The family of this 185-nucleotide sequence from Paenibacillus selenitireducens is "6S / SsrS RNA".
The match comes from Rfam's covariance-model search (90 bits).
Rfam classes the family as a non-coding RNA gene.
The family's consensus secondary structure is taken from published work.

RNA sequence: UACAUCCUGCGAUGUUCGUUUCGAUUCCUCGUUGUUUUGAACCAAUGAUGGUUUCUAGGGAGUUCAAUAUCGAGAUGCGGCUGACAUGCCCUCACCACGAGGGACCUCAAAAGCAACUCUGCGGACACCCACCUGCGAGAGUAGGUUCAGAAACAUAAGAAUCGGACGGCAUCGGCGGGUUUUUG
Numbered sequence: 001u002a003c004a005u006c007c008u009g010c011g012a013u014g015u016u017c018g019u020u021u022c023g024a025u026u027c028c029u030c031g032u033u034g035u036u037u038u039g040a041a042c043c044a045a046u047g048a049u050g051g052u053u054u055c056u057a058g059g060g061a062g063u064u065c066a067a068u069a070u071c072g073a074g075a076u077g078c079g080g081c082u083g084a085c086a087u088g089c090c091c092u093c094a095c096c097a098c099g100a101g102g103g104a105c106c107u108c109a110a111a112a113g114c115a116a117c118u119c120u121g122c123g124g125a126c127a128c129c130c131a132c133c134u135g136c137g138a139g140a141g142u143a144g145g146u147u148c149a150g151a152a153a154c155a156u157a158a159g160a161a162u163c164g165g166a167c168g169g170c171a172u173c174g175g176c177g178g179g180u181u182u183u184u185g
Base pairs, nucleotide, nucleotide: 002183004181006179007178008177009176010175012172013171014170015169017168018167019166034154035153036152037151038149039148040147041146042145043144058130059129060128062126063125064124065123069120072119073118074117076115077114078113084107089103090102091101092100093099